[Rfam]
RNA: Small nucleolar RNA SNORD69
RNA sequence: UGUACAAAGCAAAUGAUGCGAAAGCACUGACACUGACUCUGUGUGGAGUGCAUUCAGUCCAACGCAGAGCUUUGUGUU
Numbered sequence: 001u002g003u004a005c006a007a008a009g010c011a012a013a014u015g016a017u018g019c020g021a022a023a024g025c026a027c028u029g030a031c032a033c034u035g036a037c038u039c040u041g042u043g044u045g046g047a048g049u050g051c052a053u054u055c056a057g058u059c060c061a062a063c064g065c066a067g068a069g070c071u072u073u074g075u076g077u078u
Stems, first nucleotide, its partner, number of pairs: 002077009